[Rfam]
RNA sequence: GUCCGUUCAUCCAUUUUUCAUGGACGCAUGAAACCUAAGCAUGGAACGGGGCUUAGGU
Numbered sequence: 001g002u003c004c005g006u007u008c009a010u011c012c013a014u015u016u017u018u019c020a021u022g023g024a025c026g027c028a029u030g031a032a033a034c035c036u037a038a039g040c041a042u043g044g045a046a047c048g049g050g051g052c053u054u055a056g057g058u
Stems, first nucleotide, its partner, number of pairs: 004048005010024005033058008